[Rfam]
RNA sequence: AGUGAGGUUAGAGGCGCAAAGACCAUGAGUAAGCAUUAGGAGGAACAUGAGGUCCAGUGAUUUUUGCUGAAAGGGGGAUUUGCCGAAGCAGACAACUUCUCAUGAGUUGGAUGCUGGUUUCGUAUUUAAUAAGUACGAAACUGUCAUAUAGCAUGCUGAUGCUAUAUGGAGGGCUAUCUCACGC
Numbered sequence: 001a002g003u004g005a006g007g008u009u010a011g012a013g014g015c016g017c018a019a020a021g022a023c024c025a026u027g028a029g030u031a032a033g034c035a036u037u038a039g040g041a042g043g044a045a046c047a048u049g050a051g052g053u054c055c056a057g058u059g060a061u062u063u064u065u066g067c068u069g070a071a072a073g074g075g076g077g078a079u080u081u082g083c084c085g086a087a088g089c090a091g092a093c094a095a096c097u098u099c100u101c102a103u104g105a106g107u108u109g110g111a112u113g114c115u116g117g118u119u120u121c122g123u124a125u126u127u128a129a130u131a132a133g134u135a136c137g138a139a140a141c142u143g144u145c146a147u148a149u150a151g152c153a154u155g156c157u158g159a160u161g162c163u164a165u166a167u168g169g170a171g172g173g174c175u176a177u178c179u180c181a182c183g184c
Stems, first nucleotide, its partner, number of pairs: 006179002009176003016083005023076002032068004038062002087115004093109006116142011144169009